[Rfam]
RNA: mir-8517 microRNA precursor family
Nucleotides: 108
Stems, first nucleotide, its partner, number of pairs: 001107004006102001011097012024084005029069004034064002050058001052056001
Number, partner (000 for none) and nucleotide at each position: 001107u002106u003105a004104c005000u006102g007000g008000a009000c010000g011097c012096u013095u014094u015093a016092g017091c018090u019089a020088u021087u022086g023000u024084a025083c026082u027081g028080u029069u030068u031067u032066g033000u034064c035063a036000u037000u038000c039000u040000c041000u042000g043000u044000c045000u046000a047000a048000g049000a050058a051000a052056a053000a054000a055000u056052u057000g058050u059000a060000c061000u062000c063035u064034g065000u066032c067031a068030g069029a070000g071000a072000g073000u074000g075000a076000c077000a078000g079000a080028a081027c082026a083025g084024u085000u086022c087021a088020a089019u090018a091017g092016c093015u094014a095013a096012a097011g098000c099000g100000u101000c102006c103000c104004g105003u106002a107001a108000c